[Rfam]
Rfam assigns this 119-nucleotide sequence to the family "TPP riboswitch aptamer (THI element)".

RNA sequence: AAAACGCACCAGGGGUGUCUGUAUCUGCUCCAGCGGGACUGGAGCAGGUUUAGGCUGAGAAAGUCCCUUUGAACCUGAACAGGAUAAUCCCUGCGUAGGGAGAGUGCCUUUUUUUUUUC
Numbered sequence: 001a002a003a004a005c006g007c008a009c010c011a012g013g014g015g016u017g018u019c020u021g022u023a024u025c026u027g028c029u030c031c032a033g034c035g036g037g038a039c040u041g042g043a044g045c046a047g048g049u050u051u052a053g054g055c056u057g058a059g060a061a062a063g064u065c066c067c068u069u070u071g072a073a074c075c076u077g078a079a080c081a082g083g084a085u086a087a088u089c090c091c092u093g094c095g096u097a098g099g100g101a102g103a104g105u106g107c108c109u110u111u112u113u114u115u116u117u118u119c
Base pairs, nucleotide, nucleotide: 006107007106008105009104011068012067013066014065016062017055018054019053020052021051074099075098076097077096080093081092082091083090
The match comes from Rfam's covariance-model search (67 bits).